[Rfam]
RNA sequence: UGAACGGGUAACUAGGGUUCCGGUCCGCACAGGCGGAUGGCUGGUCCGAGAGUUGCCGACCUCCCGCGCGGGGGUGACACGGAGGGAUAAAAGCCCGGGAGAU
Dot-bracket structure: ......((((((..((...(((((((((....))))))..).)).))....)))))).((((((.....))))))..(.[...(((.......))).)..]..
RNA: Guanidine-I riboswitch aptamer